[Rfam]
RNA sequence: CCUCCCAUUCUUGGCAGGGCUGGGUUUUCCCGUACCCGGCUCUGUAAUGUGCGGAGGGAGAGGAAACUUGACCCAGCGUCAUGUCUUCGGUGCCAGCGGCUUUCCCGUCUGCUGGUUCUAUCCUCAAGCGCUGGGACAAAG
Numbered sequence: 001c002c003u004c005c006c007a008u009u010c011u012u013g014g015c016a017g018g019g020c021u022g023g024g025u026u027u028u029c030c031c032g033u034a035c036c037c038g039g040c041u042c043u044g045u046a047a048u049g050u051g052c053g054g055a056g057g058g059a060g061a062g063g064a065a066a067c068u069u070g071a072c073c074c075a076g077c078g079u080c081a082u083g084u085c086u087u088c089g090g091u092g093c094c095a096g097c098g099g100c101u102u103u104c105c106c107g108u109c110u111g112c113u114g115g116u117u118c119u120a121u122c123c124u125c126a127a128g129c130g131c132u133g134g135g136a137c138a139a140a141g
Stems, first nucleotide, its partner, number of pairs: 001057005015044006022037004074133006093115007

The family of this 141-nucleotide RNA from Python bivittatus is "Small nucleolar RNA SNORA57".
Taxonomically the source falls in Python (Eukaryota, Teleostomi, Dipnotetrapodomorpha, Squamata).
From the family's description: U99 belongs to the H/ACA class of snoRNAs which are thought to guide the sites of modification of uridines to pseudouridines, the target for this family is unknown.
Gene Ontology terms of the family: nucleolus and RNA processing.